[Rfam]
Nucleotides: 046
Stems, first nucleotide, its partner, number of pairs: 003046003007041004015035008
Number, partner (000 for none) and nucleotide at each position: 001000c002000c003046g004045g005044u006000c007041c008040c009039g010038g011000u012000u013000c014000a015035c016034g017033u018032c019031u020030u021029c022028g023000a024000u025000c026000c027000g028022c029021g030020a031019a032018g033017g034016c035015g036000a037000c038010c039009c040008g041007g042000c043000g044005g045004c046003c